[Rfam]
U5 spliceosomal RNA: a 111-nucleotide RNA sequence from Chara braunii.
From the family's description: U5 RNA is a component of both types of known spliceosome. The precise function of this molecule is unknown, though it is known that the 5' loop is required for splice site selection and p220 binding, and that both the 3' stem-loop and the Sm site are important for Sm protein binding and cap methylation.
A search with the family's covariance model found it, with a score of 75 bits.
The family has 180 seed sequences and 28,527 matches in Rfam 15.1.
Pairs were carried over by alignment from the consensus structure, which is taken from published work.
Its family is annotated with spliceosomal tri-snRNP complex assembly and U5 snRNP in the Gene Ontology.
It is annotated as a spliceosomal small nuclear RNA.
RNA sequence: AACUACGUGCCCACUUCAAUUGGCGUACUAUUUUUUUGCCUUUUACAAAAGAAUACCGUGGGGUGAGCACACUAAGUAGUUUACGCAAAUUUUUGUCGGGCCCUCGCUCCG
Numbered sequence: 001a002a003c004u005a006c007g008u009g010c011c012c013a014c015u016u017c018a019a020u021u022g023g024c025g026u027a028c029u030a031u032u033u034u035u036u037u038g039c040c041u042u043u044u045a046c047a048a049a050a051g052a053a054u055a056c057c058g059u060g061g062g063g064u065g066a067g068c069a070c071a072c073u074a075a076g077u078a079g080u081u082u083a084c085g086c087a088a089a090u091u092u093u094u095g096u097c098g099g100g101c102c103c104u105c106g107c108u109c110c111g
Base pairs, nucleotide, nucleotide: 003079004078005077006076008069009068010067012065013064014063015062016061017060018059029055030054031053032052033051034050035049036048